Rfam assigns this 150-nucleotide sequence from Paenibacillus oryzae to the family "c-di-AMP riboswitch aptamer (ydaO/yuaA leader)". A search with the family's covariance model found it, with a score of 67 bits.
RNA sequence: AACGACAUACAGCCUAAUUCCCGCAAGGGAAACGGGGGAACCACUUUGGGUGAAUUGAUUUCGGCUGCUGCUCCGCAGCUCCUGCGAGAUCAUAGGGAACCUUUCAACCGAACCCCACAGCUAACCUCGUCGGCGCCGGAAGGAGUUUCA
Numbered sequence: 001a002a003c004g005a006c007a008u009a010c011a012g013c014c015u016a017a018u019u020c021c022c023g024c025a026a027g028g029g030a031a032a033c034g035g036g037g038g039a040a041c042c043a044c045u046u047u048g049g050g051u052g053a054a055u056u057g058a059u060u061u062c063g064g065c066u067g068c069u070g071c072u073c074c075g076c077a078g079c080u081c082c083u084g085c086g087a088g089a090u091c092a093u094a095g096g097g098a099a100c101c102u103u104u105c106a107a108c109c110g111a112a113c114c115c116c117a118c119a120g121c122u123a124a125c126c127u128c129g130u131c132g133g134c135g136c137c138g139g140a141a142g143g144a145g146u147u148u149c150a
Stems, first nucleotide, its partner, number of pairs: 012134003018031003032130006048115003056092008095109002

From the family's description: This family represents a conserved RNA structure found upstream of the ydaO and yuaA genes in Bacillus subtilis and related genes in other bacteria.